RNA: mir-87 microRNA precursor family
RNA sequence: GAUCGGACAGCCUGACACUUGCUCUACCUUGGAAUGACUGACAGAGGUGAGCAAAGUUUCAGGUGUAUCGAAAG
Numbered sequence: 001g002a003u004c005g006g007a008c009a010g011c012c013u014g015a016c017a018c019u020u021g022c023u024c025u026a027c028c029u030u031g032g033a034a035u036g037a038c039u040g041a042c043a044g045a046g047g048u049g050a051g052c053a054a055a056g057u058u059u060c061a062g063g064u065g066u067a068u069c070g071a072a073a074g
Base pairs, nucleotide, nucleotide: 003071004070005069006068010064011063012062013061014060015059017057019054020053022051023050024049027047028046029045